Annotation
This 72-nucleotide RNA from Anopheles stephensi belongs to the Rfam family "bZIP non canonical Hac1/Xbp1 intron". Rfam classes the family as a small RNA. About the family: bZIP intron RNA is a non-canonical intron that was first reported in HAC1 gene in yeast and XBP1 gene in Metazoa. Rfam's curators put it in the seed alignment.

RNA sequence: ACUGCCGGGCGCCAAACGGGAUCAGCAGCAUCCCCACGAUGCCCUCAGCAGCAGGGACUGUACAAGUGCGGU
Numbered sequence: 001a002c003u004g005c006c007g008g009g010c011g012c013c014a015a016a017c018g019g020g021a022u023c024a025g026c027a028g029c030a031u032c033c034c035c036a037c038g039a040u041g042c043c044c045u046c047a048g049c050a051g052c053a054g055g056g057a058c059u060g061u062a063c064a065a066g067u068g069c070g071g072u
Stems, first nucleotide, its partner, number of pairs: 001072005007063001009061003018034005042056004